The family of this 33-nucleotide RNA sequence is "DUF805b RNA". The family's consensus secondary structure is taken from published work. It is one of the family's seed sequences.

RNA sequence: UAAGGACAAGCCGAAAACCUUAUAGAGUAGGCA
Dot-bracket structure: .((((....[[[.....))))........]]].